RNA sequence: UGGUGGAAGGGACAACCAGGAGUGGAGCCUGCGGCUUAAUUUGACUCAACAUGGGAAAAAUCACCCGGCCGGACACGGACAGGAUUGACAGAUUGAUAGCUCUUUCUCUGUUCCAUGGGUGGUGGUGCAUGGCCUUAGUUGGUGGAGUGAUUUGUCUGGUUAAUUCCGAUAACCAAGGAGACUCUGGCAUGCUAACUAGUUACACGACCCCCGAGCGGUCGGCGUCCCCCAACUUCUUAGAGGGACAAGUGGCGUUCAGCCACCGGAAACUGAGCAAUAAUAGGUCUGUGAUGCCCUUAGAUGUCCAGGGCUGCACGUGCGCUACACUGACUGGCUCAGUGUUUGCCUACCCUACGUGGCAGAGGCGGGUAACCUGCUGAACCCCAUUCGUGAUGGGGAUGGGGGAUUGCAAUUAUUCCCCAUGAAGGAGGAAUUUCCAGUAAGUGCGGGUCAUAAGCUUACCUGAAGUCCCUGCCCUGUGUACACACU
Dot-bracket structure: (((((..(((((..((..((((((.(((.((((((....((((........))))........((.(((....((.((........((.(((........))).))......)).))...((.((((..(((((....((((((((....)))...(((......)))...)))))......((.(.(.(.((((..((((.............................))))..))))).)..(..(((((.....)))))..)...).)).........)))...).))))))).....).)).))...)).)))).))).)...((.(((......(........((...(.(....).)...))....).........))).))............(((((..........)))))...........))))).....((.(.(((.......))).)))...))...).)))).))).))....
Overview:
The family of this 489-nucleotide part of an RNA from Pan troglodytes is "Eukaryotic small subunit ribosomal RNA". The source organism's lineage runs through Eukaryota, Deuterostomia, Dipnotetrapodomorpha, Mammalia and Pan. The family has 90 seed sequences and 75,755 matches in Rfam 15.1. The sequence is in the family's curated seed alignment.